[Rfam]
Shown here is a 74-nucleotide RNA from Podiceps cristatus, a member of the family "Small nucleolar RNA SNORD18".
By type it is a C/D-box small nucleolar RNA.
The literature on the family includes a 1993 paper in Nucleic Acids Res by Prislei et al., "Two different snoRNAs are encoded in introns of amphibian and human L1 ribosomal protein genes".
The match comes from Rfam's covariance-model search (71 bits).
Lineage of the source: Eukaryota > Sauropsida > Theropoda > Coelurosauria > Podiceps.
Its Rfam clan is "SNORD18 clan".
RNA sequence: CUGAAAUGAUGAGAUUCCACUUCAUUGGUCCGUGUUUCUGAAACGCGUGAUAUAAUGGUGGAAGUUCUGAUUGG
Dot-bracket structure: ((((..................................................................))))